[Rfam]
RNA sequence: UGAGAGUUCAAGGCUACAGCAGAAAUGCUCACCAUGUGGCCAUGUCAGAUUCCAAUGAAUUUGCAAGUUCUGCU
Numbered sequence: 001u002g003a004g005a006g007u008u009c010a011a012g013g014c015u016a017c018a019g020c021a022g023a024a025a026u027g028c029u030c031a032c033c034a035u036g037u038g039g040c041c042a043u044g045u046c047a048g049a050u051u052c053c054a055a056u057g058a059a060u061u062u063g064c065a066a067g068u069u070c071u072g073c074u
Base pairs, nucleotide, nucleotide: 012041013040014039015038018074019073020072021071022070023069024068025037026036027035046063047062048061049060050059051058052057
RNA: Mammalian CPEB3 ribozyme
Organism: Alligator mississippiensis